[Rfam]
RNA sequence: CCCUCGCCCAACAAAUCGCUAUUCGAAGCUCACAAACAGAGAUGCGUCCCUGAGGGGGCGCAUCUCAUGCAAGAGAAGCUUUGGGAGAAAGUCCCCGGACACCUUCUUCCUCUCUGAGGAAGAAGAUUGCGGAAACGCGCCGCCAUAGAAGCAAAGCGGCUGACCUCCUUCGAACACUGCCCUCGGAGCUUGUCCCCUUCCACCCCGUCUAGCCGCUACAUCGGAACGUUCUACCUUGUUUCCAGACCGGCGUUGAACGAGGAACGGCCCGUCGAGACCACAUGGACGAAGAUAUGAGUCCGAGCUCGGCGUGUCGUUCCUCCCAAGGCCCGUAUGCUAGGGGCGAGGUAGGCGUCCUCGAUGGCUUGAUGGCCGUGGUAAGGGAUGCACGCCGGGGGCGCGACGGGGUUCGGGAGGAUCUUUCGUCGAGAUACCAUAGGUAUGCGAUUGCUCGUUGCUGCCAACGAGUUACUCAAUGGGGCUUAUUCUUGGUGCGAGG
Numbered sequence: 001c002c003c004u005c006g007c008c009c010a011a012c013a014a015a016u017c018g019c020u021a022u023u024c025g026a027a028g029c030u031c032a033c034a035a036a037c038a039g040a041g042a043u044g045c046g047u048c049c050c051u052g053a054g055g056g057g058g059c060g061c062a063u064c065u066c067a068u069g070c071a072a073g074a075g076a077a078g079c080u081u082u083g084g085g086a087g088a089a090a091g092u093c094c095c096c097g098g099a100c101a102c103c104u105u106c107u108u109c110c111u112c113u114c115u116g117a118g119g120a121a122g123a124a125g126a127u128u129g130c131g132g133a134a135a136c137g138c139g140c141c142g143c144c145a146u147a148g149a150a151g152c153a154a155a156g157c158g159g160c161u162g163a164c165c166u167c168c169u170u171c172g173a174a175c176a177c178u179g180c181c182c183u184c185g186g187a188g189c190u191u192g193u194c195c196c197c198u199u200c201c202a203c204c205c206c207g208u209c210u211a212g213c214c215g216c217u218a219c220a221u222c223g224g225a226a227c228g229u230u231c232u233a234c235c236u237u238g239u240u241u242c243c244a245g246a247c248c249g250g251c252g253u254u255g256a257a258c259g260a261g262g263a264a265c266g267g268c269c270c271g272u273c274g275a276g277a278c279c280a281c282a283u284g285g286a287c288g289a290a291g292a293u294a295u296g297a298g299u300c301c302g303a304g305c306u307c308g309g310c311g312u313g314u315c316g317u318u319c320c321u322c323c324c325a326a327g328g329c330c331c332g333u334a335u336g337c338u339a340g341g342g343g344c345g346a347g348g349u350a351g352g353c354g355u356c357c358u359c360g361a362u363g364g365c366u367u368g369a370u371g372g373c374c375g376u377g378g379u380a381a382g383g384g385a386u387g388c389a390c391g392c393c394g395g396g397g398g399c400g401c402g403a404c405g406g407g408g409u410u411c412g413g414g415a416g417g418a419u420c421u422u423u424c425g426u427c428g429a430g431a432u433a434c435c436a437u438a439g440g441u442a443u444g445c446g447a448u449u450g451c452u453c454g455u456u457g458c459u460g461c462c463a464a465c466g467a468g469u470u471a472c473u474c475a476a477u478g479g480g481g482c483u484u485a486u487u488c489u490u491g492g493u494g495c496g497a498g499g
Base pairs, nucleotide, nucleotide: 002499003498004497005496006495007494008492009491010490011489014449015448016447017446018445019444023085024083025082026081027080028079029078039066040065041064042063043062044061045060046059047058048057049056050055089484090483091482093481094480095479096478128139129138130137131136292419293418300413301412302411303410304409305408310405311404312403320400322398323397451468452467453466454465455464456463
RNase MRP: a 499-nucleotide RNA sequence from Sodiomyces alkalinus. From the family's description: RNase MRP is an enzymatically active ribonucleoprotein with two distinct roles in eukaryotes. Its Rfam clan is "RNaseP clan". NCBI's taxonomy places the organism under Eukaryota, Fungi, saccharomyceta, Pezizomycotina, Sodiomyces alkalinus. The match comes from Rfam's covariance-model search (109 bits).